[Rfam]
RNA sequence: AUCUUAAAAGGAAAGAGGUUUUGCAAAUGGAUAUCGCUGGUGUUAUUACAAGCAUUAUUGAUUUAAUCAAGACUUGCAUUCAAACUUUCGGUUAAUUUUCAGUUUUAUUGCAUUAAAAAGGCAGAGGAAAUAUUCAAUCUUUUGAUUGUUUC
Number, nucleotide and partner (000 for none) at each position: 001a000002u000003c000004u000005u000006a000007a093008a092009a000010g000011g089012a088013a087014a086015g085016a000017g000018g000019u000020u000021u000022u078023g077024c076025a075026a000027a000028u000029g000030g068031a067032u066033a000034u061035c060036g059037c000038u057039g056040g055041u054042g053043u052044u051045a000046u000047u000048a000049c000050a000051a044052g043053c042054a041055u040056u039057a038058u000059u036060g035061a034062u000063u000064u000065a000066a032067u031068c030069a000070a000071g000072a000073c000074u000075u025076g024077c023078a022079u000080u000081c000082a000083a000084a000085c015086u014087u013088u012089c011090g000091g000092u008093u007094a000095a000096u000097u000098u000099u000100c000101a000102g000103u000104u000105u000106u000107a000108u000109u000110g000111c000112a000113u000114u000115a000116a000117a000118a000119a000120g000121g000122c000123a000124g000125a000126g000127g152128a151129a150130a149131u148132a147133u000134u145135c144136a143137a142138u000139c000140u000141u000142u137143u136144g135145a134146u000147u132148g131149u130150u129151u128152c127
RNA: psm_mec locus RNA
Organism: Mammaliicoccus sciuri